[Rfam]
The record is a 67-nucleotide RNA sequence from Ramlibacter agri, which matches "int-alpA RNA" in Rfam. Rfam's curators write: Acidobacteria (1 example), Planctomycetes (1 example), Proteobacteria.

RNA sequence: GCCGCGCCUAGGCUGAUCCCCGAACACCCGCAAACCUGGCGGGUCGGCGCGGCUCCUUUCAUUCAGG
Dot-bracket structure: ((((((((..((.......)).....(((((...[[[[)))))..))))))))..........]]]]
The match comes from Rfam's covariance-model search (43 bits). The family's consensus secondary structure is taken from published work.